This 107-nucleotide RNA from Paenimyroides tangerinum belongs to the Rfam family "Bacteroidales small SRP". Pairs were carried over by alignment from the consensus structure, which is taken from published work.
RNA sequence: UUUGCAGAAGCAAGUCCUACACGACCAGCUCCUAAUGACUCCUCCAGGGCGGGAACGCAGCAAAGGUAUUUGGUUGUAGCGGUGCGAUGUAGGUCGCUUGCUUUUUU
Numbered sequence: 001u002u003u004g005c006a007g008a009a010g011c012a013a014g015u016c017c018u019a020c021a022c023g024a025c026c027a028g029c030u031c032c033u034a035a036u037g038a039c040u041c042c043u044c045c046a047g048g049g050c051g052g053g054a055a056c057g058c059a060g061c062a063a064a065g066g067u068a069u070u071u072g073g074u075u076g077u078a079g080c081g082g083u084g085c086g087a088u089g090u091a092g093g094u095c096g097c098u099u100g101c102u103u104u105u106u107u
Stems, first nucleotide, its partner, number of pairs: 008103008017092005022086002024083002
Dot-bracket structure: .......((((((((.(((((((((........................................................)).)).)))))...))))))))....